This 92-nucleotide RNA from Paracoccus salipaludis belongs to the Rfam family "Rhodo-rpoB RNA".
The organism belongs to Paracoccus, within Bacteria.
The base pairs follow the family's consensus structure, which is taken from published work.
[Rfam]
RNA sequence: GGUUCGGGAGCUGCGCGGUGGGACGCGCGGCACGAAUGGAGCCGCACCCCUGUUGUUCGCAAGCCGCCGGCCCGGGCCCCGACGAGCCGGCG
Numbered sequence: 001g002g003u004u005c006g007g008g009a010g011c012u013g014c015g016c017g018g019u020g021g022g023a024c025g026c027g028c029g030g031c032a033c034g035a036a037u038g039g040a041g042c043c044g045c046a047c048c049c050c051u052g053u054u055g056u057u058c059g060c061a062a063g064c065c066g067c068c069g070g071c072c073c074g075g076g077c078c079c080c081g082a083c084g085a086g087c088c089g090g091c092g
Stems, first nucleotide, its partner, number of pairs: 001043005010031008065092007073084002